[Rfam]
RNA sequence: CAAGCAAGCUGGCUUAUCGCUCUGGUAAAAGUACCAGGGAGGAAAGUCCGAGCAACAUAGAGCACCCUACUUCUUAACAGGAAGGCACCUAGUAAGAAAGCUAGGAUAGCAGACAGUGCCACAGAAAAUAAACCGCCUAGCAAUAGGUAAGGGUGAAAAGGUGGGGUAAAAGCCCACCGCUUUGUUGGUGACAACAAAGGCACGGUAAACCUUAGGGGUUGCAAGGCCAAGUAAGUGUUGCUUUCCCAUAAAAGGGGAUAACAGGCUGCUCGUCUGUAUUUCAGUUAUUGAAAGGCAACAUGGGUAGGCCGCUAGAGGAUGCAAGUGAUUGCAGACCCAGAUAAAUGAUAAGCACGCUCGGUUUUCUUAUAGAAGAACAGCGUACAGAACUCGGCUUAUAGGCUUGCUUUGUAU
Numbered sequence: 001c002a003a004g005c006a007a008g009c010u011g012g013c014u015u016a017u018c019g020c021u022c023u024g025g026u027a028a029a030a031g032u033a034c035c036a037g038g039g040a041g042g043a044a045a046g047u048c049c050g051a052g053c054a055a056c057a058u059a060g061a062g063c064a065c066c067c068u069a070c071u072u073c074u075u076a077a078c079a080g081g082a083a084g085g086c087a088c089c090u091a092g093u094a095a096g097a098a099a100g101c102u103a104g105g106a107u108a109g110c111a112g113a114c115a116g117u118g119c120c121a122c123a124g125a126a127a128a129u130a131a132a133c134c135g136c137c138u139a140g141c142a143a144u145a146g147g148u149a150a151g152g153g154u155g156a157a158a159a160g161g162u163g164g165g166g167u168a169a170a171a172g173c174c175c176a177c178c179g180c181u182u183u184g185u186u187g188g189u190g191a192c193a194a195c196a197a198a199g200g201c202a203c204g205g206u207a208a209a210c211c212u213u214a215g216g217g218g219u220u221g222c223a224a225g226g227c228c229a230a231g232u233a234a235g236u237g238u239u240g241c242u243u244u245c246c247c248a249u250a251a252a253a254g255g256g257g258a259u260a261a262c263a264g265g266c267u268g269c270u271c272g273u274c275u276g277u278a279u280u281u282c283a284g285u286u287a288u289u290g291a292a293a294g295g296c297a298a299c300a301u302g303g304g305u306a307g308g309c310c311g312c313u314a315g316a317g318g319a320u321g322c323a324a325g326u327g328a329u330u331g332c333a334g335a336c337c338c339a340g341a342u343a344a345a346u347g348a349u350a351a352g353c354a355c356g357c358u359c360g361g362u363u364u365u366c367u368u369a370u371a372g373a374a375g376a377a378c379a380g381c382g383u384a385c386a387g388a389a390c391u392c393g394g395c396u397u398a399u400a401g402g403c404u405u406g407c408u409u410u411g412u413a414u
Stems, first nucleotide, its partner, number of pairs: 002409009011399001012353007020039008044397003048394005053221004060288001062286001065217005070084005085110001087107001089105001111212002116210002118206003133152002135148005160178006179201001180199008225310004235301006279293005317336001320333005
RNA: Bacterial RNase P class A